The family of this 88-nucleotide sequence from Denticeps clupeoides is "mir-132 microRNA precursor family". Its family is annotated with miRNA-mediated post-transcriptional gene silencing and RISC complex in the Gene Ontology. On this family, see Chen et al., Genes Dev 2005: "The developmental miRNA profiles of zebrafish as determined by small RNA cloning". The match comes from Rfam's covariance-model search (65 bits). The organism belongs to Denticeps, within Eukaryota.
RNA sequence: UGAUGUCAUGACCUUGGCUCUAGACUGCUUACUGCUCUCAUAGUCUCAAAGUACAGUAACAGUCUACAGUCAUGGCUACUGAAGUAUG
Numbered sequence: 001u002g003a004u005g006u007c008a009u010g011a012c013c014u015u016g017g018c019u020c021u022a023g024a025c026u027g028c029u030u031a032c033u034g035c036u037c038u039c040a041u042a043g044u045c046u047c048a049a050a051g052u053a054c055a056g057u058a059a060c061a062g063u064c065u066a067c068a069g070u071c072a073u074g075g076c077u078a079c080u081g082a083a084g085u086a087u088g
Stems, first nucleotide, its partner, number of pairs: 012075002015072004023064005029059005
Dot-bracket structure: ...........((.((((....(((((.(((((.....................))))))))))....)))).)).............